[Rfam]
RNA sequence: GCGAGACGCCGUGUCCGGACGCCGGAUGCGCCGGAUAAACUGAUGUCGGAACCGUCCGGGCGCAGCUCCCGUGCGGUCCCGCCAAUGAUUCAGCCAGCAGCCGCUGCAACCCCAGGGAG
Numbered sequence: 001g002c003g004a005g006a007c008g009c010c011g012u013g014u015c016c017g018g019a020c021g022c023c024g025g026a027u028g029c030g031c032c033g034g035a036u037a038a039a040c041u042g043a044u045g046u047c048g049g050a051a052c053c054g055u056c057c058g059g060g061c062g063c064a065g066c067u068c069c070c071g072u073g074c075g076g077u078c079c080c081g082c083c084a085a086u087g088a089u090u091c092a093g094c095c096a097g098c099a100g101c102c103g104c105u106g107c108a109a110c111c112c113c114a115g116g117g118a119g
Stems, first nucleotide, its partner, number of pairs: 048080002051077003056073001057071004095106004
RNA: Streptomyces-metK RNA
Organism: Streptomyces sp. Ru87